[Rfam]
RNA sequence: UAUGCUUGCUGUAGUGAUGCACGGCAGACAGUUUUAGUUACUAGAAUUGUUUUCUAUCAGUUUUUAAAUUUUUAAGCAUCUCGGAGAAAUCGAAUGGCUUUAACUACACAAGAUCGCGCAGAAAUCGUUGCUAAAUUUGCUCGUGCAGAA
Dot-bracket structure: ......((((((........))))))......................(((...............................((((...........)))))))..............................................
Overview:
Ribosomal S15 leader: a 150-nucleotide RNA from Acinetobacter nectaris. The literature on the family includes a 1996 paper in Biochimie by Benard et al., "Pseudoknot and translational control in the expression of the S15 ribosomal protein". The E. coli Ribosomal S15 gene 5' UTR can form two alternative structures. Gene Ontology term of the family: regulation of translation, ncRNA-mediated. Taxonomically the source falls in Acinetobacter nectaris (Bacteria, Pseudomonadati, Moraxellaceae, Acinetobacter). A search with the family's covariance model found it, with a score of 46 bits.